[Rfam]
RNA: int-alpA RNA
Organism: Roseimaritima multifibrata
RNA sequence: GCCGCGGCUAGGACCGUACAUCCGAAAGCCAGCUUCCCGAACUGGCCUGCCGUGGCGAUUUUUCAUUCGGG
Numbered sequence: 001g002c003c004g005c006g007g008c009u010a011g012g013a014c015c016g017u018a019c020a021u022c023c024g025a026a027a028g029c030c031a032g033c034u035u036c037c038c039g040a041a042c043u044g045g046c047c048u049g050c051c052g053u054g055g056c057g058a059u060u061u062u063u064c065a066u067u068c069g070g071g
Base pairs, nucleotide, nucleotide: 001056002055003054004053005052006051007050008049011023012022013021028046029045030044031043032042036071037070038069039068040067041066